A member of the RNA family "terC RNA" from Methylobacterium planeticum, 58 nucleotides long.

[Rfam]
RNA sequence: CCCCGGGUCCGGGCCCCUCUGGCGAUCGAGGCGUCGAUCGUGAUGUCGGACCCCCGCC
Numbered sequence: 001c002c003c004c005g006g007g008u009c010c011g012g013g014c015c016c017c018u019c020u021g022g023c024g025a026u027c028g029a030g031g032c033g034u035c036g037a038u039c040g041u042g043a044u045g046u047c048g049g050a051c052c053c054c055c056g057c058c
Stems, first nucleotide, its partner, number of pairs: 006052007022041008

The source organism's lineage runs through Bacteria, Pseudomonadati, Pseudomonadota, Hyphomicrobiales and Methylobacterium. The family's consensus secondary structure is taken from published work.